[Rfam]
RNA sequence: GUCCAGGGGAAGCUCACCACCAAGGCCACCAACGGGGUGCGCGUCACCCUCCACCCCGCCUCGGGGAAGGUCUGAGGGAAGGGCUGCCCGCGGCUCUUGCAGAGCUCCGCCCACGAGGGGCGGGUGAGCCACCAGCAAGGCGGGGGGCGCCGCGUAUCGUGGGUCGGCCUGGGCAGGAGAAACCGUUCAGAGGGGUGCCGGUCACUCCGGUUAAACCCCCCACGGUGGAUGCUCGUGGCCCCGCGGUGCUUUGAGACAGACUCACGGCCGGCGAUCGCUGAGCCCAAUGGGUGAGGUGGGGCAUCGCCCUACAACCCAAUUCAGACUACUCUCCUUAGGAC
Numbered sequence: 001g002u003c004c005a006g007g008g009g010a011a012g013c014u015c016a017c018c019a020c021c022a023a024g025g026c027c028a029c030c031a032a033c034g035g036g037g038u039g040c041g042c043g044u045c046a047c048c049c050u051c052c053a054c055c056c057c058g059c060c061u062c063g064g065g066g067a068a069g070g071u072c073u074g075a076g077g078g079a080a081g082g083g084c085u086g087c088c089c090g091c092g093g094c095u096c097u098u099g100c101a102g103a104g105c106u107c108c109g110c111c112c113a114c115g116a117g118g119g120g121c122g123g124g125u126g127a128g129c130c131a132c133c134a135g136c137a138a139g140g141c142g143g144g145g146g147g148c149g150c151c152g153c154g155u156a157u158c159g160u161g162g163g164u165c166g167g168c169c170u171g172g173g174c175a176g177g178a179g180a181a182a183c184c185g186u187u188c189a190g191a192g193g194g195g196u197g198c199c200g201g202u203c204a205c206u207c208c209g210g211u212u213a214a215a216c217c218c219c220c221c222a223c224g225g226u227g228g229a230u231g232c233u234c235g236u237g238g239c240c241c242c243g244c245g246g247u248g249c250u251u252u253g254a255g256a257c258a259g260a261c262u263c264a265c266g267g268c269c270g271g272c273g274a275u276c277g278c279u280g281a282g283c284c285c286a287a288u289g290g291g292u293g294a295g296g297u298g299g300g301g302c303a304u305c306g307c308c309c310u311a312c313a314a315c316c317c318a319a320u321u322c323a324g325a326c327u328a329c330u331c332u333c334c335u336u337a338g339g340a341c
Stems, first nucleotide, its partner, number of pairs: 001341004008334003013295006021063001023061003035049005072324005082269004092106005107123006124265005130259001146250009296312007
Shown here is a 341-nucleotide RNA from Pterocles burchelli, a member of the family "Nuclear RNase P". For this family Rfam cites "Ribonuclease P: unity and diversity in a tRNA processing ribozyme" (Frank and Pace, Annu Rev Biochem, 1998). Taxonomically the source falls in Pterocles (Eukaryota, Teleostomi, Sarcopterygii, Archelosauria). Ribonuclease P (RNase P) is a ubiquitous endoribonuclease, found in archaea, bacteria and eukarya as well as chloroplasts and mitochondria. Its best characterised activity is the generation of mature 5'-ends of tRNAs by cleaving the 5'-leader elements of precursor-tRNAs. Cellular RNase Ps are ribonucleoproteins. RNA from bacterial RNase Ps retains its catalytic activity in the absence of the protein subunit, i.e. it is a ribozyme. By type it is a ribozyme.